The record is a 66-nucleotide RNA sequence from Sphaerotilus mobilis, which matches "Betaproteobacteria toxic small RNA" in Rfam.
RNA sequence: UGUCUCCUCCACCCUCCUCAAAAAAGGUGGAUUAAGCCCAAGGCCUCUGGUCUUGGGCUUUUUUUC
Numbered sequence: 001u002g003u004c005u006c007c008u009c010c011a012c013c014c015u016c017c018u019c020a021a022a023a024a025a026g027g028u029g030g031a032u033u034a035a036g037c038c039c040a041a042g043g044c045c046u047c048u049g050g051u052c053u054u055g056g057g058c059u060u061u062u063u064u065u066c
Stems, first nucleotide, its partner, number of pairs: 008031006035059008